[Rfam]
The family of this 100-nucleotide RNA sequence from Methanomethylovorans hollandica is "Pyrrolysine insertion sequence mtbB". The literature on the family includes a 2013 paper in BMC Bioinformatics by Theil Have et al., "Effects of using coding potential, sequence conservation and mRNA structure conservation for predicting pyrroly-sine containing genes". The base pairs follow the family's consensus structure, which was predicted with WAR. A search with the family's covariance model found it, with a score of 106 bits.

RNA sequence: UAGAUAGGGGUCGGCGACCCGAUGGGUAUGCCGAUCACUCACAUAAUGACCUCCGGUAUGAGCGGUAUCAGGGCAGCUGGUGACCUUGUGGCAAGGAUGG
Number, nucleotide and partner (000 for none) at each position: 001u000002a000003g000004a000005u000006a000007g038008g000009g000010g035011u034012c033013g032014g031015c030016g029017a027018c026019c025020c000021g000022a000023u000024g000025g019026g018027u017028a000029u016030g015031c014032c013033g012034a011035u010036c000037a000038c007039u000040c000041a000042c000043a000044u000045a000046a000047u000048g000049a000050c000051c000052u000053c000054c000055g000056g000057u000058a000059u000060g000061a000062g000063c000064g000065g000066u000067a000068u000069c000070a000071g000072g000073g092074c091075a000076g089077c088078u000079g086080g085081u000082g000083a000084c000085c080086u079087u000088g077089u076090g000091g074092c073093a000094a000095g000096g000097a000098u000099g000100g000